[Rfam]
RNA sequence: CAGGUGUCUCCUGAUGAUACAACACCAAUGCAUAGUUCAUCUGAAUCUACUGAAGACAAACUAUUCCUUCUUAUUCUUUCGCUCCCAUCUGACUCACACCUU
Numbered sequence: 001c002a003g004g005u006g007u008c009u010c011c012u013g014a015u016g017a018u019a020c021a022a023c024a025c026c027a028a029u030g031c032a033u034a035g036u037u038c039a040u041c042u043g044a045a046u047c048u049a050c051u052g053a054a055g056a057c058a059a060a061c062u063a064u065u066c067c068u069u070c071u072u073a074u075u076c077u078u079u080c081g082c083u084c085c086c087a088u089c090u091g092a093c094u095c096a097c098a099c100c101u102u
Stems, first nucleotide, its partner, number of pairs: 003100005
The record is a 102-nucleotide RNA from Fusarium pseudograminearum, which matches "Small nucleolar RNA snR60/Z15/Z230/Z193/J17" in Rfam. Gene Ontology terms of the family: RNA processing and nucleolus. The family is grouped with related families in Rfam's "SNORD77 clan". Rfam 15.1 lists 3,592 matches to the family in 1,855 species. It scores 52 bits against the family's covariance model. The family's RNA type in Rfam is C/D-box small nucleolar RNA. Taxonomically the source falls in Fusarium pseudograminearum (Eukaryota, Opisthokonta, saccharomyceta, Pezizomycotina).